This 117-nucleotide sequence from Dactylosporangium sucinum belongs to the Rfam family "TPP riboswitch aptamer (THI element)". Rfam describes the family as follows. Vitamin B(1) in its active form thiamin pyrophosphate (TPP) is an essential coenzyme that is synthesised by coupling of pyrimidine and thiazole moieties in bacteria. The previously detected thiamin-regulatory element, thi box was extended, resulting in a new, highly conserved RNA secondary structure, the THI element, which is widely distributed in eubacteria and also occurs in some archaea. Analysis of operon structures identified a large number of new candidate thiamin-regulated genes, mostly transporters, in various prokaryotic organisms. The THI element is a riboswitch that directly binds to TPP to regulate gene expression through a variety of mechanisms in archaea, bacteria and eukaryotes. through a variety of mechanisms in archaea, bacteria and eukaryotes. Tandem TPP riboswitches have been reported where both TPP riboswitches respond independently to TPP. The structure of TPP riboswitch has been reported for Escherichia coli and Arabidopsis thaliana. The family's consensus secondary structure is taken from published work. The family has 115 seed sequences and 16,130 matches in Rfam 15.1. The match comes from Rfam's covariance-model search (63 bits).
RNA sequence: CACAUCCGACAGGGGAGCGCACAGCGCUGAGAGUGCGGCAGCCGUGGAAUCCGGCGCCGCAGACCCUCGAACCUGAUCUGGGUAAUGCCAGCGCAGGGAGCUCGGUCACCUCACGCC
Numbered sequence: 001c002a003c004a005u006c007c008g009a010c011a012g013g014g015g016a017g018c019g020c021a022c023a024g025c026g027c028u029g030a031g032a033g034u035g036c037g038g039c040a041g042c043c044g045u046g047g048a049a050u051c052c053g054g055c056g057c058c059g060c061a062g063a064c065c066c067u068c069g070a071a072c073c074u075g076a077u078c079u080g081g082g083u084a085a086u087g088c089c090a091g092c093g094c095a096g097g098g099a100g101c102u103c104g105g106u107c108a109c110c111u112c113a114c115g116c117c
Stems, first nucleotide, its partner, number of pairs: 006105004011067004017027004034061005072097004078091004